[Rfam]
RNA sequence: AGGCUAGGGCAAUGAUGGAUUUGGUAAGCGUGUCAGGUCUGGAAGGAAGCAGCACAUAUCAAGUCUUAUCAUGUGCCUGAAUUAAAU
Number, nucleotide and partner (000 for none) at each position: 001a000002g000003g000004c000005u080006a000007g078008g077009g076010c073011a000012a072013u071014g070015a069016u068017g067018g000019a064020u063021u062022u061023g060024g059025u058026a000027a000028g000029c000030g055031u054032g053033u052034c000035a000036g000037g000038u047039c046040u045041g000042g000043a000044a000045g040046g039047a038048a000049g000050c000051a000052g033053c032054a031055c030056a000057u000058a025059u024060c023061a022062a021063g020064u019065c000066u000067u017068a016069u015070c014071a013072u012073g010074u000075g000076c009077c008078u007079g000080a005081a000082u000083u000084a000085a000086a000087u000
RNA: Bacterial small signal recognition particle RNA
Organism: Vagococcus allomyrinae